[Rfam]
RNA: EcpR1
RNA sequence: AUACCCUACGGAGCGCCUGGGUCCGCCGCAUCUCCUGGGUCCGUGGGGCAAGGCCGGCGCGGUGUCUGCCCGAUGAGUGGCCUCCUCGGAUUGGCAGUCCCGCGCCGGCCGCCAC
Numbered sequence: 001a002u003a004c005c006c007u008a009c010g011g012a013g014c015g016c017c018u019g020g021g022u023c024c025g026c027c028g029c030a031u032c033u034c035c036u037g038g039g040u041c042c043g044u045g046g047g048g049c050a051a052g053g054c055c056g057g058c059g060c061g062g063u064g065u066c067u068g069c070c071c072g073a074u075g076a077g078u079g080g081c082c083u084c085c086u087c088g089g090a091u092u093g094g095c096a097g098u099c100c101c102g103c104g105c106c107g108g109c110c111g112c113c114a115c
Stems, first nucleotide, its partner, number of pairs: 004048007016039006052110011